The record is a 104-nucleotide RNA sequence, which matches "DUF3800-VII RNA" in Rfam. The sequence is in the family's curated seed alignment. By type it is a small RNA.
RNA sequence: AGCAGGCAUGCGUGGGUCGUCCCGCUUCGCGGGACUCACAGGUCGUCCGGUAAGGGCGGCAGCCCCUAGUGGGUGGGAUCCUGUGACCCAGGGCCUGCUCGUUU
Numbered sequence: 001a002g003c004a005g006g007c008a009u010g011c012g013u014g015g016g017u018c019g020u021c022c023c024g025c026u027u028c029g030c031g032g033g034a035c036u037c038a039c040a041g042g043u044c045g046u047c048c049g050g051u052a053a054g055g056g057c058g059g060c061a062g063c064c065c066c067u068a069g070u071g072g073g074u075g076g077g078a079u080c081c082u083g084u085g086a087c088c089c090a091g092g093g094c095c096u097g098c099u100c101g102u103u104u
Base pairs, nucleotide, nucleotide: 001099002098003097004096005095006094007093011091013090014089015088016087036086037085038084039083040082041081042060043059044058045057046056047055048054063073064072065071